[Rfam]
Nucleotides: 100
Stems, first nucleotide, its partner, number of pairs: 007038001010035002016029001017027003073092001075090003079086002
Number, partner (000 for none) and nucleotide at each position: 001000u002000a003000g004000a005000u006000a007038g008000g009000c010035g011034u012000a013000g014000g015000c016029g017027a018026u019025c020000c021000u022000u023000u024000a025019g026018g027017u028000g029016c030000u031000g032000a033000a034011g035010c036000u037000g038007c039000a040000c041000a042000c043000g044000c045000u046000c047000u048000g049000g050000c051000c052000g053000c054000u055000u056000g057000u058000a059000u060000g061000g062000g063000c064000g065000g066000u067000a068000u069000a070000c071000g072000c073092a074000c075090u076089g077088c078000c079086g080085g081000a082000g083000a084000u085080c086079u087000g088077g089076u090075g091000a092073u093000g094000c095000g096000u097000c098000u099000a100000c
The record is a 100-nucleotide RNA sequence from Aminipila luticellarii, which matches "Pyrrolysine insertion sequence mtbB" in Rfam.
NCBI's taxonomy places the organism under Bacteria, Bacillota, Peptostreptococcales, Anaerovoracaceae, Aminipila.
The base pairs follow the family's consensus structure, which was predicted with WAR.